A member of the RNA family "poplar-1 RNA", 139 nucleotides long. By type it is a small RNA. The sequence is in the family's curated seed alignment.
[Rfam]
RNA sequence: UUUGAGCCGAGGGGCAAUGUAGAAACGGCAGGUUGGCGCCCAACCGGACACAGCAACAUGAAGCCCGCCUAGCGUGAAGGACUAGCUGAAGCGCUAAGAAAUACUGAGCCUGUGCAACAGGCAGCUAGACAGUAGCUAA
Numbered sequence: 001u002u003u004g005a006g007c008c009g010a011g012g013g014g015c016a017a018u019g020u021a022g023a024a025a026c027g028g029c030a031g032g033u034u035g036g037c038g039c040c041c042a043a044c045c046g047g048a049c050a051c052a053g054c055a056a057c058a059u060g061a062a063g064c065c066c067g068c069c070u071a072g073c074g075u076g077a078a079g080g081a082c083u084a085g086c087u088g089a090a091g092c093g094c095u096a097a098g099a100a101a102u103a104c105u106g107a108g109c110c111u112g113u114g115c116a117a118c119a120g121g122c123a124g125c126u127a128g129a130c131a132g133u134a135g136c137u138a139a
Stems, first nucleotide, its partner, number of pairs: 012066004018058003031045005068098001071095005082128004102134004108122005